[Rfam]
RNA: Small nucleolar RNA SNORD127
RNA sequence: GGGCAACGAUGAUGACAGGAGCUGUGCCUGGAUGUAAGGUCUCCUUACCACGUGGAGACACCAGUCCCUCUAAACUGAGGUUGCCC
Numbered sequence: 001g002g003g004c005a006a007c008g009a010u011g012a013u014g015a016c017a018g019g020a021g022c023u024g025u026g027c028c029u030g031g032a033u034g035u036a037a038g039g040u041c042u043c044c045u046u047a048c049c050a051c052g053u054g055g056a057g058a059c060a061c062c063a064g065u066c067c068c069u070c071u072a073a074a075c076u077g078a079g080g081u082u083g084c085c086c
Base pairs, nucleotide, nucleotide: 001086002085003084004083005082006081007080
Dot-bracket structure: (((((((........................................................................)))))))